Rfam assigns this 87-nucleotide RNA from Glycine max to the family "Small nucleolar RNA Z159/U59".
The family's RNA type in Rfam is C/D-box small nucleolar RNA.

Nucleotides: 087
Base pairs, nucleotide, nucleotide: 003085004084005083006082
Number, partner (000 for none) and nucleotide at each position: 001000g002000c003085c004084u005083c006082c007000a008000a009000g010000g011000a012000u013000g014000a015000a016000c017000a018000a019000a020000a021000a022000u023000a024000a025000a026000a027000c028000u029000u030000u031000c032000a033000u034000u035000c036000u037000u038000c039000u040000g041000a042000g043000u044000u045000g046000u047000u048000u049000c050000c051000a052000u053000g054000u055000g056000g057000a058000a059000a060000a061000u062000a063000u064000a065000u066000u067000g068000g069000a070000g071000a072000c073000c074000u075000g076000a077000a078000c079000u080000g081000a082006g083005g084004a085003g086000g087000c